Y RNA: a 98-nucleotide RNA from Nomascus leucogenys.
Y RNAs are components of the Ro ribonucleoprotein particle (Ro RNP), in association with Ro60 and La proteins. The Y RNAs and Ro60 and La proteins are well conserved, but the function of the Ro RNP is not known.
For this family Rfam cites "Caenorhabditis elegans embryos contain only one major species of Ro RNP" (Van Horn et al., RNA, 1995).
A search with the family's covariance model found it, with a score of 41 bits.
The base pairs follow the family's consensus structure, which is taken from published work.
[Rfam]
RNA sequence: UAGUGGUGCAAUGCAGUGGUGUUUACAACCAAUUGAUCACAACCAGUAACAGAUUUCUUUGUUCCUUCUCUGUUCCUACUACUUCAUUUGACUAAAUU
Dot-bracket structure: ...((((..((.(.(((((.(.....(((.((.........................)).)))...........))))))....)..)).))))....